[Rfam]
RNA: XIST RNA A repeat
RNA sequence: UGGCCCAUCGGGGCCUAGGAUACCUGCUCUAUUUUU
Numbered sequence: 001u002g003g004c005c006c007a008u009c010g011g012g013g014c015c016u017a018g019g020a021u022a023c024c025u026g027c028u029c030u031a032u033u034u035u036u
Base pairs, nucleotide, nucleotide: 003014004013005012006011018025019024